[Rfam]
Group II catalytic intron D1-D4-4: a 138-nucleotide RNA sequence from Bacillus thuringiensis. Pairs were carried over by alignment from the consensus structure. Gene Ontology term of the family: Group II intron splicing. Rfam's curators write: Group II introns are found in rRNA, tRNA and mRNA of organelles in fungi, plants and protists, and also in mRNA in bacteria. A reference for the family is Bonen and Vogel (2001), "The ins and outs of group II introns", Trends Genet.
RNA sequence: UAGUUGGUGAAAGUCCAAUCGGGGGAAUAGACUCCACUCCCGUAGCCUGAGAGGCGCCAUGAAGUGAAAGCGACAUGGCGAAGCCCUCUGACAUCACAUGCAAAAGGCAUGUGGGCAAAUCUCCAGGUUGUAACGUAC
Numbered sequence: 001u002a003g004u005u006g007g008u009g010a011a012a013g014u015c016c017a018a019u020c021g022g023g024g025g026a027a028u029a030g031a032c033u034c035c036a037c038u039c040c041c042g043u044a045g046c047c048u049g050a051g052a053g054g055c056g057c058c059a060u061g062a063a064g065u066g067a068a069a070g071c072g073a074c075a076u077g078g079c080g081a082a083g084c085c086c087u088c089u090g091a092c093a094u095c096a097c098a099u100g101c102a103a104a105a106g107g108c109a110u111g112u113g114g115g116c117a118a119a120u121c122u123c124c125a126g127g128u129u130g131u132a133a134c135g136u137a138c
Base pairs, nucleotide, nucleotide: 020042021041022040023039024038050089051088052087053086054085055080056079057078058077059076060075064071065070096112097111098110099109100108101107115131116130117129